The record is a 161-nucleotide RNA sequence from Streptomyces fuscichromogenes, which matches "c-di-AMP riboswitch aptamer (ydaO/yuaA leader)" in Rfam.
RNA sequence: CCCACACACCCACCCGUGCCCGGCAGGAGCGGGGGACCCACCAGGUACGACCGCCUGUUCCGGUUCCCGGGACGGCUAGGGGUGUAGUCGCGCGACGACGCGUGGCCGGGCAGCUCCAGCCCGAACCCGACAGCUCACCUCGCAGGCGCCGGAGAGGAAUG
Numbered sequence: 001c002c003c004a005c006a007c008a009c010c011c012a013c014c015c016g017u018g019c020c021c022g023g024c025a026g027g028a029g030c031g032g033g034g035g036a037c038c039c040a041c042c043a044g045g046u047a048c049g050a051c052c053g054c055c056u057g058u059u060c061c062g063g064u065u066c067c068c069g070g071g072a073c074g075g076c077u078a079g080g081g082g083u084g085u086a087g088u089c090g091c092g093c094g095a096c097g098a099c100g101c102g103u104g105g106c107c108g109g110g111c112a113g114c115u116c117c118a119g120c121c122c123g124a125a126c127c128c129g130a131c132a133g134c135u136c137a138c139c140u141c142g143c144a145g146g147c148g149c150c151g152g153a154g155a156g157g158a159a160u161g
Stems, first nucleotide, its partner, number of pairs: 001027002029143006039079001080128003088105004108122004